[Rfam]
Notes:
This 103-nucleotide RNA sequence from Cellulosimicrobium funkei belongs to the Rfam family "SAM riboswitch aptamer (S box leader)". Rfam links the family to the GO term regulation of gene expression. Pairs were carried over by alignment from the consensus structure, which is taken from published work. About the family: The SAM riboswitch is found upstream of a number of genes which code for proteins involved in methionine or cysteine biosynthesis in Gram-positive bacteria.
RNA sequence: CAACCAUCCAGAGCGGUCGAGAGUCCUGGCUCGACGACACCGCAGCAACCCGCCGACGGAAGCCUCCCGAGGACAAAGGUGCUAACGCCAGGGUCGAUGGAGC
Numbered sequence: 001c002a003a004c005c006a007u008c009c010a011g012a013g014c015g016g017u018c019g020a021g022a023g024u025c026c027u028g029g030c031u032c033g034a035c036g037a038c039a040c041c042g043c044a045g046c047a048a049c050c051c052g053c054c055g056a057c058g059g060a061a062g063c064c065u066c067c068c069g070a071g072g073a074c075a076a077a078g079g080u081g082c083u084a085a086c087g088c089c090a091g092g093g094u095c096g097a098u099g100g101a102g103c
Base pairs, nucleotide, nucleotide: 004100005099006098007097008096013043014042015041016040017039021032022031023030026091027090028089029088044083045082046081047080049079050078052074054072087095